[Rfam]
RNA sequence: AAAGUUAACCAGACAAUCGCUGAUUAAAUAAUUUUAAAAUUUAUAAAAUAUUAAUUAUUUAAAAAGAGGAAAGUCCGGGCUCCACAGGACAAAAGUGCCAGAUAACAUCUGGGAGAUGCGAGUCUACGAAAAGUGUAACAGAAAUAAACCGCUAAUUUUAUAUUUAGCAAGGGUGAAAAGGAGUGGUAAGAGCACACCGUGAAAUUGGUAACAAUUUUCAGCAAUACAAACUCCACUUGGAGCAAGGUUAAAAUAAAGUUUAAAAUGAUAUGGUCCUGUAUAUAUUAAACUUAGGUAAACCGCUAAAGUAAUUAAGCAAUUAAUUACUUAGAUAAAUGAUUGUCAAAAACAGAACCCGGCUUAUAGGUUAACUUUAUAA
Numbered sequence: 001a002a003a004g005u006u007a008a009c010c011a012g013a014c015a016a017u018c019g020c021u022g023a024u025u026a027a028a029u030a031a032u033u034u035u036a037a038a039a040u041u042u043a044u045a046a047a048a049u050a051u052u053a054a055u056u057a058u059u060u061a062a063a064a065a066g067a068g069g070a071a072a073g074u075c076c077g078g079g080c081u082c083c084a085c086a087g088g089a090c091a092a093a094a095g096u097g098c099c100a101g102a103u104a105a106c107a108u109c110u111g112g113g114a115g116a117u118g119c120g121a122g123u124c125u126a127c128g129a130a131a132a133g134u135g136u137a138a139c140a141g142a143a144a145u146a147a148a149c150c151g152c153u154a155a156u157u158u159u160a161u162a163u164u165u166a167g168c169a170a171g172g173g174u175g176a177a178a179a180g181g182a183g184u185g186g187u188a189a190g191a192g193c194a195c196a197c198c199g200u201g202a203a204a205u206u207g208g209u210a211a212c213a214a215u216u217u218u219c220a221g222c223a224a225u226a227c228a229a230a231c232u233c234c235a236c237u238u239g240g241a242g243c244a245a246g247g248u249u250a251a252a253a254u255a256a257a258g259u260u261u262a263a264a265a266u267g268a269u270a271u272g273g274u275c276c277u278g279u280a281u282a283u284a285u286u287a288a289a290c291u292u293a294g295g296u297a298a299a300c301c302g303c304u305a306a307a308g309u310a311a312u313u314a315a316g317c318a319a320u321u322a323a324u325u326a327c328u329u330a331g332a333u334a335a336a337u338g339a340u341u342g343u344c345a346a347a348a349a350c351a352g353a354a355c356c357c358g359g360c361u362u363a364u365a366g367g368u369u370a371a372c373u374u375u376a377u378a379a
Stems, first nucleotide, its partner, number of pairs: 001375010011364001012344007020066002024062010071362003075359005080242004088276001093238005098112005113127001114125004128233002133231002135227003149172002151168005157162001180198002183195003199222001200220005205214003246301004256292006268283004308327008